[Rfam]
Description: A member of the RNA family "TPP riboswitch aptamer (THI element)" from Cytobacillus dafuensis, 110 nucleotides long. Lineage of the source: Bacteria > Bacillota > Caryophanales > Bacillaceae > Cytobacillus. Vitamin B(1) in its active form thiamin pyrophosphate (TPP) is an essential coenzyme that is synthesised by coupling of pyrimidine and thiazole moieties in bacteria. It scores 71 bits against the family's covariance model.
Nucleotides: 110
Base pairs, nucleotide, nucleotide: 008096009095010094011060012059013058014057016054017031018030019029020028039053040052041051042050043049044048066091067090068089072085073084074083075082
Number, partner (000 for none) and nucleotide at each position: 001000u002000u003000a004000g005000a006000a007000u008096u009095g010094u011060a012059g013058g014057g015000g016054a017031a018030c019029c020028g021000g022000u023000g024000u025000u026000a027000a028020c029019g030018g031017u032000u033000g034000a035000g036000a037000u038000u039053g040052g041051a042050u043049c044048u045000g046000u047000g048044a049043g050042g051041u052040c053039c054016u055000g056000a057014c058013c059012c060011u061000u062000u063000g064000a065000a066091c067090c068089u069000g070000a071000u072085c073084u074083g075082g076000u077000u078000a079000a080000g081000a082075c083074c084073a085072g086000c087000g088000g089068a090067g091066g092000a093000a094010a095009c096008a097000u098000a099000u100000u101000c102000g103000a104000g105000u106000a107000a108000a109000g110000a